[Rfam]
RNA sequence: GACCGCGAAGCCGGCGGCGCCCGCGUGGCGCGUGAGACCGGCACCGCCUUCGAGCGAUCGGAGGCUGCG
Numbered sequence: 001g002a003c004c005g006c007g008a009a010g011c012c013g014g015c016g017g018c019g020c021c022c023g024c025g026u027g028g029c030g031c032g033u034g035a036g037a038c039c040g041g042c043a044c045c046g047c048c049u050u051c052g053a054g055c056g057a058u059c060g061g062a063g064g065c066u067g068c069g
Stems, first nucleotide, its partner, number of pairs: 010042005017031005046065008
A member of the RNA family "Transposase-2 RNA" from a Solirubrobacterales bacterium, 69 nucleotides long. It is annotated as a small RNA. The family's consensus secondary structure is taken from published work. A search with the family's covariance model found it, with a score of 54 bits.